Shown here is a 90-nucleotide sequence from Enterococcus sp. PFB1-1, a member of the family "BsrC". The family has 29 seed sequences and 572 matches in Rfam 15.1.

RNA sequence: UUUCAUUUAAACAAUGUAUUCCCUAACCUCUAAUACAUCCUUGUAACUCUAUAGUUACGCCAACUUGUGAAUAAACUUCAGCAAAAUGGA
Numbered sequence: 001u002u003u004c005a006u007u008u009a010a011a012c013a014a015u016g017u018a019u020u021c022c023c024u025a026a027c028c029u030c031u032a033a034u035a036c037a038u039c040c041u042u043g044u045a046a047c048u049c050u051a052u053a054g055u056u057a058c059g060c061c062a063a064c065u066u067g068u069g070a071a072u073a074a075a076c077u078u079c080a081g082c083a084a085a086a087u088g089g090a
Stems, first nucleotide, its partner, number of pairs: 036069002041062001042059007

The literature on the family includes a 2008 paper in Gene by Saito et al., "Novel small RNA-encoding genes in the intergenic regions of Bacillus subtilis". About the family: The 301 nucleotide sequence from Kouji Nakamura has been trimmed to a highly conserved ~85 nucleotide long core to form this family. Pairs were carried over by alignment from the consensus structure, which was predicted with CMfinder.